[Rfam]
This 123-nucleotide RNA sequence from Thermoanaerobacter sp. X514 belongs to the Rfam family "Ribosomal protein L20 leader". The family's RNA type in Rfam is cis-regulatory leader. Pairs were carried over by alignment from the consensus structure, which was predicted with CMfinder. From the family's description: This family is a putative r-protein leader autoregulatory structure found in B. subtilis and other low-GC Gram-positive bacteria. It is located in the 5' untranslated regions of mRNAs encoding initiation factor 3 followed by ribosomal proteins L35 and L20 (infC-rpmI-rplT). A Rho-independent transcription terminator structure that is probably involved in regulation is included at the 3' end. Its family is annotated with regulation of gene expression in the Gene Ontology.

RNA sequence: AGCAAUAAGUAGAAGCGCCCGCUUCUCACCUUUCACCGAGGGUGCAAAGGUUUUUUCAAAAGUAGUUAUUGUUGUUUUGUUAUAAAGAAGCGGGUAUUUCUAUAUCCGCUUUUAUUUUUUCAU
Numbered sequence: 001a002g003c004a005a006u007a008a009g010u011a012g013a014a015g016c017g018c019c020c021g022c023u024u025c026u027c028a029c030c031u032u033u034c035a036c037c038g039a040g041g042g043u044g045c046a047a048a049g050g051u052u053u054u055u056u057c058a059a060a061a062g063u064a065g066u067u068a069u070u071g072u073u074g075u076u077u078u079g080u081u082a083u084a085a086a087g088a089a090g091c092g093g094g095u096a097u098u099u100c101u102a103u104a105u106c107c108g109c110u111u112u113u114a115u116u117u118u119u120u121c122a123u
Stems, first nucleotide, its partner, number of pairs: 011026006028051003033046001035043002089110009